The record is a 117-nucleotide RNA sequence from Pseudofulvimonas gallinarii, which matches "ALIL pseudoknot" in Rfam. It is annotated as a cis-regulatory element. The organism belongs to Pseudofulvimonas, within Bacteria. The match comes from Rfam's covariance-model search (115 bits). Pairs were carried over by alignment from the consensus structure, which is taken from published work.
RNA sequence: CGCUUUUUUCGCCCAGGCGGAGCUCGACCGCCGGCUGAAGUCCUGAGGGCAUUUGUCGAUACGCACCGGGGUACGUUCGGGGUCGAGCCGAUCUGCAGCGCCCUGCAGAUCGCCCCG
Numbered sequence: 001c002g003c004u005u006u007u008u009u010c011g012c013c014c015a016g017g018c019g020g021a022g023c024u025c026g027a028c029c030g031c032c033g034g035c036u037g038a039a040g041u042c043c044u045g046a047g048g049g050c051a052u053u054u055g056u057c058g059a060u061a062c063g064c065a066c067c068g069g070g071g072u073a074c075g076u077u078c079g080g081g082g083u084c085g086a087g088c089c090g091a092u093c094u095g096c097a098g099c100g101c102c103c104u105g106c107a108g109a110u111c112g113c114c115c116c117g
Base pairs, nucleotide, nucleotide: 016032017031018030019029020028078117079116080115081114082113089112090111092109093108094107095106096105097104098103